[Rfam]
RNA: Small nucleolar RNA R38
RNA sequence: CUGAGCUAGUGAUGAUAAAAGUUAUCCCUGUCCGAAUUUGAUCUUUCCUCUGUGGAAGCAGAAUUCUGAGGCUCAG
Numbered sequence: 001c002u003g004a005g006c007u008a009g010u011g012a013u014g015a016u017a018a019a020a021g022u023u024a025u026c027c028c029u030g031u032c033c034g035a036a037u038u039u040g041a042u043c044u045u046u047c048c049u050c051u052g053u054g055g056a057a058g059c060a061g062a063a064u065u066c067u068g069a070g071g072c073u074c075a076g
Stems, first nucleotide, its partner, number of pairs: 001076007